RNA sequence: AAUAAUCUUAAAGCGCCAGGGCUUAAGCCGGAGUAUUGACGGCUUAAGUUGACGAGGAAGAGGUUUAUCGAGUUAUCGGCGGAUGCCUCUAGGCUUUUGCUGCAAGCCUUAAGUCCCUCCUUAAAACUUAUGAGUGAUCAUAAGGACAAAGGGAGGGAUGGCAGCAGA
Numbered sequence: 001a002a003u004a005a006u007c008u009u010a011a012a013g014c015g016c017c018a019g020g021g022c023u024u025a026a027g028c029c030g031g032a033g034u035a036u037u038g039a040c041g042g043c044u045u046a047a048g049u050u051g052a053c054g055a056g057g058a059a060g061a062g063g064u065u066u067a068u069c070g071a072g073u074u075a076u077c078g079g080c081g082g083a084u085g086c087c088u089c090u091a092g093g094c095u096u097u098u099g100c101u102g103c104a105a106g107c108c109u110u111a112a113g114u115c116c117c118u119c120c121u122u123a124a125a126a127c128u129u130a131u132g133a134g135u136g137a138u139c140a141u142a143a144g145g146a147c148a149a150a151g152g153g154a155g156g157g158a159u160g161g162c163a164g165c166a167g168a
Base pairs, nucleotide, nucleotide: 020050021049022048023047024046025045026044027043029041059090060089061088062087063086068079069078070077071076091109092108093107094106095105096104114158115157116156117155118154119153120152127144128143129142130141131140132139133138
This 168-nucleotide RNA sequence from Anoxybacter fermentans belongs to the Rfam family "glmS glucosamine-6-phosphate activated ribozyme aptamer". NCBI's taxonomy places the organism under Bacteria, Bacillati, Clostridia, Halanaerobiales, Anoxybacter. The family's RNA type in Rfam is riboswitch. The family's consensus secondary structure is taken from published work. From the family's description: This entry contains a glucosamine-6-phosphate activated ribozyme that is found in the mRNA for GlmS. GlmS is an enzyme that uses fructose-6-phosphate and glutamine to generate glucosamine-6-phosphate. The ribozyme catalyses self cleavage of the glmS mRNA that is thought to regulate GlmS activity. Its family is annotated with catalytic activity and regulation of gene expression in the Gene Ontology.